The family of this 71-nucleotide sequence from Variovorax sp. PAMC 28711 is "SAH (S-adenosyl-L-homocysteine) riboswitch aptamer". It scores 56 bits against the family's covariance model. The family's consensus secondary structure is taken from published work. The organism belongs to Variovorax, within Bacteria.
RNA sequence: CGGUCCGAGGAGCGUUGCAGCGCCGACAUAGGCGUGAGGCUCGGACACCUUCGCAACCACGCUCAUCCGCU
Numbered sequence: 001c002g003g004u005c006c007g008a009g010g011a012g013c014g015u016u017g018c019a020g021c022g023c024c025g026a027c028a029u030a031g032g033c034g035u036g037a038g039g040c041u042c043g044g045a046c047a048c049c050u051u052c053g054c055a056a057c058c059a060c061g062c063u064c065a066u067c068c069g070c071u
Base pairs, nucleotide, nucleotide: 003046004045005044006043007042008041021034022033023032024031
Dot-bracket structure: ..((((((............((((......))))......)))))).........................